Notes
Rfam assigns this 118-nucleotide RNA sequence from Clostridium sp. CAG:62 to the family "FMN riboswitch aptamer (RFN element)". Pairs were carried over by alignment from the consensus structure, which is taken from published work. About the family: The RFN element is a highly conserved domain that is found frequently in the 5'-untranslated regions of prokaryotic mRNAs that encode for flavin mononucleotide (FMN) biosynthesis and transport proteins.
RNA sequence: AGAAAUCUUCAGGGCGGGGUGCAAUUCCCCACCGGCGGUAAAGCCCGCGAGCGACCUUGGUUGCCGAUUCGGUGAAAUUCCGAAGCCGACAGUAUAGUCUGGAUGAAAGAAGAUAAAC
Numbered sequence: 001a002g003a004a005a006u007c008u009u010c011a012g013g014g015c016g017g018g019g020u021g022c023a024a025u026u027c028c029c030c031a032c033c034g035g036c037g038g039u040a041a042a043g044c045c046c047g048c049g050a051g052c053g054a055c056c057u058u059g060g061u062u063g064c065c066g067a068u069u070c071g072g073u074g075a076a077a078u079u080c081c082g083a084a085g086c087c088g089a090c091a092g093u094a095u096a097g098u099c100u101g102g103a104u105g106a107a108a109g110a111a112g113a114u115a116a117a118c
Stems, first nucleotide, its partner, number of pairs: 005114006017029003031098002033088002035048004043086002051064003068084005090101003